[Rfam]
Background
Shown here is a 79-nucleotide RNA from Rhodamnia argentea, a member of the family "Small nucleolar RNA Z155". Rfam links the family to the GO terms RNA processing and nucleolus. A reference for the family is Chen et al. (2003), "The high diversity of snoRNAs in plants: identification and comparative study of 120 snoRNA genes from Oryza sativa", Nucleic Acids Res. NCBI's taxonomy places the organism under Eukaryota, Euphyllophyta, Mesangiospermae, malvids, Rhodamnia.

RNA sequence: CAUUGAUGUGAUGAUAACAUUCUCGGAAACACACAAAUGUCGACUACAAAAUUAUCAGACUACAAUUAUCUGAUCAAUG
Numbered sequence: 001c002a003u004u005g006a007u008g009u010g011a012u013g014a015u016a017a018c019a020u021u022c023u024c025g026g027a028a029a030c031a032c033a034c035a036a037a038u039g040u041c042g043a044c045u046a047c048a049a050a051a052u053u054a055u056c057a058g059a060c061u062a063c064a065a066u067u068a069u070c071u072g073a074u075c076a077a078u079g
Stems, first nucleotide, its partner, number of pairs: 001079006